RNA sequence: AAAUAAAAACGGCAAACUUAUUAAAUGGUAAGGACGCAAAGCCACGGGUCUAAGGUGAAGUACUAUGAUCGCCGGGGUGCCAAA
Numbered sequence: 001a002a003a004u005a006a007a008a009a010c011g012g013c014a015a016a017c018u019u020a021u022u023a024a025a026u027g028g029u030a031a032g033g034a035c036g037c038a039a040a041g042c043c044a045c046g047g048g049u050c051u052a053a054g055g056u057g058a059a060g061u062a063c064u065a066u067g068a069u070c071g072c073c074g075g076g077g078u079g080c081c082a083a084a
Base pairs, nucleotide, nucleotide: 012037013036017032018031019030020029021028022027040078042076043075045074046073047072048069049068050067055063056062057061

A member of the RNA family "c-di-GMP-I riboswitch aptamer" from Anaerobacillus alkalidiazotrophicus, 84 nucleotides long. GEMM was predicted in a large-scale screen for bacterial structured RNA regulatory elements. The organism belongs to Anaerobacillus, within Bacteria. The match comes from Rfam's covariance-model search (68 bits).